RNA: Small nucleolar RNA SNORD67
Organism: Leptobrachium leishanense
RNA sequence: CUGGAGGGUGAUGAGCUGCACCGCUAUGGGCUCAUGGUGCUGUGUACCAAUGGGUCCCACUGAAUCAGUGAUGCCAAGACUAUGUGCACAGGGGCCAGCUGACUCCAU
Numbered sequence: 001c002u003g004g005a006g007g008g009u010g011a012u013g014a015g016c017u018g019c020a021c022c023g024c025u026a027u028g029g030g031c032u033c034a035u036g037g038u039g040c041u042g043u044g045u046a047c048c049a050a051u052g053g054g055u056c057c058c059a060c061u062g063a064a065u066c067a068g069u070g071a072u073g074c075c076a077a078g079a080c081u082a083u084g085u086g087c088a089c090a091g092g093g094g095c096c097a098g099c100u101g102a103c104u105c106c107a108u
Base pairs, nucleotide, nucleotide: 006105007104008103024062027059028057029056030055031054033052034051035050036048037047038046039045040044